[Rfam]
RNA sequence: UAACAGUACUGUUAAAUAGGCUCCUUGAAACAGUAAUGUUUCAAUGGCAAAUGAGGUGAAUUGCAAGAACAUUUAUUUAACCUAACCUCCGGUAAAUUAAAUUAUUUGCAGCGAAGUUUGACAUGGUAUGUUUAUGUGUCAAAACCGUUCAACGACUAACAAGUGAGCAAUACCGCAAUAAGCUUGACACGAGUACCUCACAACCUUUUUAUUACUUUUAAUAUUUACUGUAUUCUAAUUAUAAUAGAUCUAAUAGAAAAGUUAUGAUAAGGUUGAAGAUAUAGUCUAAACAAAACUGAAAAGUUUUG
Numbered sequence: 001u002a003a004c005a006g007u008a009c010u011g012u013u014a015a016a017u018a019g020g021c022u023c024c025u026u027g028a029a030a031c032a033g034u035a036a037u038g039u040u041u042c043a044a045u046g047g048c049a050a051a052u053g054a055g056g057u058g059a060a061u062u063g064c065a066a067g068a069a070c071a072u073u074u075a076u077u078u079a080a081c082c083u084a085a086c087c088u089c090c091g092g093u094a095a096a097u098u099a100a101a102u103u104a105u106u107u108g109c110a111g112c113g114a115a116g117u118u119u120g121a122c123a124u125g126g127u128a129u130g131u132u133u134a135u136g137u138g139u140c141a142a143a144a145c146c147g148u149u150c151a152a153c154g155a156c157u158a159a160c161a162a163g164u165g166a167g168c169a170a171u172a173c174c175g176c177a178a179u180a181a182g183c184u185u186g187a188c189a190c191g192a193g194u195a196c197c198u199c200a201c202a203a204c205c206u207u208u209u210u211a212u213u214a215c216u217u218u219u220a221a222u223a224u225u226u227a228c229u230g231u232a233u234u235c236u237a238a239u240u241a242u243a244a245u246a247g248a249u250c251u252a253a254u255a256g257a258a259a260a261g262u263u264a265u266g267a268u269a270a271g272g273u274u275g276a277a278g279a280u281a282u283a284g285u286c287u288a289a290a291c292a293a294a295a296c297u298g299a300a301a302a303g304u305u306u307u308g
Stems, first nucleotide, its partner, number of pairs: 001018002029040003052200004057195002062110006072101004111148002117142002122136003152287001154286005203273005209267003293306005
RNA: Group I catalytic intron
Organism: Lachnellula suecica